[Rfam]
RNA: tRNA
RNA sequence: GCCCUGGUGGUGUAGCUCGGCCUAUCAUACAGGACUGUCACUCCUGUGACUCGGGUUCAAAUCCCGGCCAGGGCG
Numbered sequence: 001g002c003c004c005u006g007g008u009g010g011u012g013u014a015g016c017u018c019g020g021c022c023u024a025u026c027a028u029a030c031a032g033g034a035c036u037g038u039c040a041c042u043c044c045u046g047u048g049a050c051u052c053g054g055g056u057u058c059a060a061a062u063c064c065c066g067g068c069c070a071g072g073g074c075g
Stems, first nucleotide, its partner, number of pairs: 001074007010028003030046005051067005